The family of this 169-nucleotide RNA from Clostridium chauvoei is "Lysine riboswitch aptamer".
RNA sequence: AACUGAGAUAGAGGUGCAAAACUUAUCAGUAGCAUUAUGGAGGUAAGCUCAAUGAAGUAAUGUGAAAGGAUUUUUUGCCGAAGUGUACGGGUAAAGCUUUAAUACCGUAUCACUGGUAUUUCAUAUAACAUAUGUAAUACUGUCACAUUUGUGGAGCGCUAUCAUUCUU
Numbered sequence: 001a002a003c004u005g006a007g008a009u010a011g012a013g014g015u016g017c018a019a020a021a022c023u024u025a026u027c028a029g030u031a032g033c034a035u036u037a038u039g040g041a042g043g044u045a046a047g048c049u050c051a052a053u054g055a056a057g058u059a060a061u062g063u064g065a066a067a068g069g070a071u072u073u074u075u076u077g078c079c080g081a082a083g084u085g086u087a088c089g090g091g092u093a094a095a096g097c098u099u100u101a102a103u104a105c106c107g108u109a110u111c112a113c114u115g116g117u118a119u120u121u122c123a124u125a126u127a128a129c130a131u132a133u134g135u136a137a138u139a140c141u142g143u144c145a146c147a148u149u150u151g152u153g154g155a156g157c158g159c160u161a162u163c164a165u166u167c168u169u
Stems, first nucleotide, its partner, number of pairs: 007163005016078006024070001032063007082114004086109005115141006122134004143154004
The source organism's lineage runs through Bacteria, Bacillati, Bacillota, Eubacteriales and Clostridium chauvoei. Rfam links the family to the GO term lysine biosynthetic process.